[Rfam]
The record is an 83-nucleotide sequence from Callorhinchus milii, which matches "mir-181 microRNA precursor family" in Rfam. A reference for the family is Lagos-Quintana et al. (2003), "New microRNAs from mouse and human", RNA. The source organism's lineage runs through Eukaryota, Gnathostomata, Chimaeriformes, Callorhinchidae and Callorhinchus. Pairs were carried over by alignment from the consensus structure, which was predicted with PFOLD.
RNA sequence: AGGUUGCAAUAAACAUUCAUUGCUGUCGGUGGGUUUUUAAUUUUUGAGCAACUCACUGAUCAGUGAAUGCAAACUGCAGCCCC
Numbered sequence: 001a002g003g004u005u006g007c008a009a010u011a012a013a014c015a016u017u018c019a020u021u022g023c024u025g026u027c028g029g030u031g032g033g034u035u036u037u038u039a040a041u042u043u044u045u046g047a048g049c050a051a052c053u054c055a056c057u058g059a060u061c062a063g064u065g066a067a068u069g070c071a072a073a074c075u076g077c078a079g080c081c082c083c
Stems, first nucleotide, its partner, number of pairs: 002082002004079005014069009025060007033052003